[Rfam]
RNA sequence: CCGUACAGCCGGGGAGAUAGCGGUGCCCUGUAUCUGCAACCCGCUUUAGCAGAGGUGAUAUCCUGCCUAGGGUGUCCAUCUGUAAGGCUGCCCCGGAUAAGUGAUGCUGACGUGAGGGUCCUUACGCAACAAAACCCUGUGAACCUUGUCAGGACAGGAAUGUAGCAGCAAUAAGCGGGAGCUUUUGUGUGCCGUAAGACAGCCGUCGCCGAGUCAACUGUCCGGGUAACGUUUAUGGCUGGCAUUCAAAGCAGGAUGUACGG
Numbered sequence: 001c002c003g004u005a006c007a008g009c010c011g012g013g014g015a016g017a018u019a020g021c022g023g024u025g026c027c028c029u030g031u032a033u034c035u036g037c038a039a040c041c042c043g044c045u046u047u048a049g050c051a052g053a054g055g056u057g058a059u060a061u062c063c064u065g066c067c068u069a070g071g072g073u074g075u076c077c078a079u080c081u082g083u084a085a086g087g088c089u090g091c092c093c094c095g096g097a098u099a100a101g102u103g104a105u106g107c108u109g110a111c112g113u114g115a116g117g118g119u120c121c122u123u124a125c126g127c128a129a130c131a132a133a134a135c136c137c138u139g140u141g142a143a144c145c146u147u148g149u150c151a152g153g154a155c156a157g158g159a160a161u162g163u164a165g166c167a168g169c170a171a172u173a174a175g176c177g178g179g180a181g182c183u184u185u186u187g188u189g190u191g192c193c194g195u196a197a198g199a200c201a202g203c204c205g206u207c208g209c210c211g212a213g214u215c216a217a218c219u220g221u222c223c224g225g226g227u228a229a230c231g232u233u234u235a236u237g238g239c240u241g242g243c244a245u246u247c248a249a250a251g252c253a254g255g256a257u258g259u260a261c262g263g
Base pairs, nucleotide, nucleotide: 001263002262003261004260005259006258007257008056009055010054011029012028013027014026016024018022033053034052035051036050037049061256062255063254064253065252066251070247071246072245073244074243076242077241078240080238081237082236083235084234085233089228090227093225094224095223096222097221098220101218102217103215104214105213112209113208114207115206117204118203119202121198122197123196124195125194126193127189128188130187131186132185133184134183136179137178138177139176140175146171147170148169149168154163155162156161
Dot-bracket structure: ((((((((((((((.(.(...).).))))...(((((...........))))))))....((((((...(((((.(((.((((((...((..((((((..(((((......((((.(((.((((((((.(((((.(((((.....((((....(((....)))....))))...)))))...)))))))...))))))...))).))))...))).)).)))))).))....)))))).))))))))...)))))))))))))